[Rfam]
Nucleotides: 035
Base pairs, nucleotide, nucleotide: 001034002033004031005030006029009027011026012025013024014023015022016020
Number, partner (000 for none) and nucleotide at each position: 001034g002033g003000u004031u005030u006029c007000c008000u009027g010000c011026u012025u013024c014023a015022a016020c017000a018000g019000u020016g021000c022015u023014u024013g025012a026011a027009c028000a029006g030005a031004a032000c033002u034001c035000c